[Rfam]
RNA sequence: UGUCCAUCGUAUCGUUUUAGAAUUCCUACGCUUUACCGUCGUGUCCGAAAUUUGGCAAAGCGUUUGGAUUCUGAAACGAUAUAUGG
Numbered sequence: 001u002g003u004c005c006a007u008c009g010u011a012u013c014g015u016u017u018u019a020g021a022a023u024u025c026c027u028a029c030g031c032u033u034u035a036c037c038g039u040c041g042u043g044u045c046c047g048a049a050a051u052u053u054g055g056c057a058a059a060g061c062g063u064u065u066g067g068a069u070u071c072u073g074a075a076a077c078g079a080u081a082u083a084u085g086g
Base pairs, nucleotide, nucleotide: 012078014077015076016075017074018073019072020071021070023068024067025066028063029062030061031060032059033058034057036055037054
A member of the RNA family "mir-927 microRNA precursor family" from Drosophila virilis, 86 nucleotides long.
Pairs were carried over by alignment from the consensus structure, which was predicted with RNAalifold.